[Rfam]
Record summary: Rfam assigns this 87-nucleotide sequence to the family "CopA-like RNA". It is annotated as an antisense RNA. Rfam describes the family as follows. In several groups of bacterial plasmids, antisense RNAs regulate copy number through inhibition of replication initiator protein synthesis.
RNA sequence: ACAGAGCAGCAGUUCUGUACGGUUUUAGUAGGCCCCGAUUAAUCUCUGUACUCGCCAAAGUUGAGGAGAUUAUCGGGGUUUUGUUUU
Numbered sequence: 001a002c003a004g005a006g007c008a009g010c011a012g013u014u015c016u017g018u019a020c021g022g023u024u025u026u027a028g029u030a031g032g033c034c035c036c037g038a039u040u041a042a043u044c045u046c047u048g049u050a051c052u053c054g055c056c057a058a059a060g061u062u063g064a065g066g067a068g069a070u071u072a073u074c075g076g077g078g079u080u081u082u083g084u085u086u087u
Base pairs, nucleotide, nucleotide: 001018002017003016004015005014027086028085030081031080032079033078034077035076036075037074038073040072041071042070043069044068045067046066